The record is an 84-nucleotide RNA sequence from Mortierella sp. 14UC, which matches "Small nucleolar RNA R38" in Rfam.
From the family's description: snoR38 is a C/D box small nucleolar RNA conserved across yeast, human, Arabidopsis and rice. It is encoded in the intron of elongation factor-1 gamma in both pombe and cerevisiae. snoR38 guides the methylation of 2'-O-ribose sites in 28S rRNA.

[Rfam]
RNA sequence: AGGAGUGAAUGAUGAAGUUUUAUUUUAAUCAGUUAUCCCUGACUUAAUCAUCUAUGUCGAGAACUUGAUUUCUGAAAAACUCCU
Numbered sequence: 001a002g003g004a005g006u007g008a009a010u011g012a013u014g015a016a017g018u019u020u021u022a023u024u025u026u027a028a029u030c031a032g033u034u035a036u037c038c039c040u041g042a043c044u045u046a047a048u049c050a051u052c053u054a055u056g057u058c059g060a061g062a063a064c065u066u067g068a069u070u071u072c073u074g075a076a077a078a079a080c081u082c083c084u
Stems, first nucleotide, its partner, number of pairs: 001084006

On this family, see Bachellerie et al., Trends Biochem Sci 1995: "Antisense snoRNAs: a family of nucleolar RNAs with long complementarities to rRNA".